[Rfam]
RNA sequence: AAGGCGGCACCCCAAAGGGCUGUACUUUCCCGGUGCAAUGGUGUGUUCUGAAUAAUCUGCUCUGAGCCGUGAGACGGACCGAGACAGAUGA
Numbered sequence: 001a002a003g004g005c006g007g008c009a010c011c012c013c014a015a016a017g018g019g020c021u022g023u024a025c026u027u028u029c030c031c032g033g034u035g036c037a038a039u040g041g042u043g044u045g046u047u048c049u050g051a052a053u054a055a056u057c058u059g060c061u062c063u064g065a066g067c068c069g070u071g072a073g074a075c076g077g078a079c080c081g082a083g084a085c086a087g088a089u090g091a
Base pairs, nucleotide, nucleotide: 001027002026003025004023005022006021007020008019010018011017057087058086059085060083061082062081064079067077068076
RNA: pan motif
Organism: Kyrpidia spormannii